Shown here is a 155-nucleotide sequence from Populus deltoides, a member of the family "MIR2912 microRNA precursor family".
Pairs were carried over by alignment from the consensus structure, which was predicted with RNAalifold.
The match comes from Rfam's covariance-model search (133 bits).
The source organism's lineage runs through Eukaryota, eudicotyledons, Pentapetalae, Saliceae and Populus.
Its family is annotated with miRNA-mediated post-transcriptional gene silencing and RISC complex in the Gene Ontology.

RNA sequence: UCUAGAACUCGAGAUAUGGGCUGAACACUAAACAGUGACUGGGCUGCAGGAUAGAUUCGGACUUCUCUGUUGUUGCUAUAAUUUGGACUUGAAAAUGACCUUUUUAAAUCUUGGUCCCCCUUGAAAGUUUUAGGCCUAUAUCUUAGCUUUCCAUC
Numbered sequence: 001u002c003u004a005g006a007a008c009u010c011g012a013g014a015u016a017u018g019g020g021c022u023g024a025a026c027a028c029u030a031a032a033c034a035g036u037g038a039c040u041g042g043g044c045u046g047c048a049g050g051a052u053a054g055a056u057u058c059g060g061a062c063u064u065c066u067c068u069g070u071u072g073u074u075g076c077u078a079u080a081a082u083u084u085g086g087a088c089u090u091g092a093a094a095a096u097g098a099c100c101u102u103u104u105u106a107a108a109u110c111u112u113g114g115u116c117c118c119c120c121u122u123g124a125a126a127g128u129u130u131u132a133g134g135c136c137u138a139u140a141u142c143u144u145a146g147c148u149u150u151c152c153a154u155c
Stems, first nucleotide, its partner, number of pairs: 003153001005151003008146002011144010021133005027128003035122001037120001041118003045114001048112005054105002059100002063097001068092001072088003